[Rfam]
RNA sequence: CGACCUCGUGCGGGAGAGUCCCCUUUCAGGGGCGCCGAAGGAGCAAACCUCCCCGGAAUCUCUCAGGCAAGCGGUACCGCACGGACGAG
Numbered sequence: 001c002g003a004c005c006u007c008g009u010g011c012g013g014g015a016g017a018g019u020c021c022c023c024u025u026u027c028a029g030g031g032g033c034g035c036c037g038a039a040g041g042a043g044c045a046a047a048c049c050u051c052c053c054c055g056g057a058a059u060c061u062c063u064c065a066g067g068c069a070a071g072c073g074g075u076a077c078c079g080c081a082c083g084g085a086c087g088a089g
Stems, first nucleotide, its partner, number of pairs: 006084008020032004034068003037064002041062003048055001
The family of this 89-nucleotide sequence from Planotetraspora thailandica is "Glycine riboswitch aptamer". On this family, see Babina et al., MBio 2017: "In Vivo Behavior of the Tandem Glycine Riboswitch in Bacillus subtilis". About the family: This family represents the bacterial glycine riboswitch. Pairs were carried over by alignment from the consensus structure.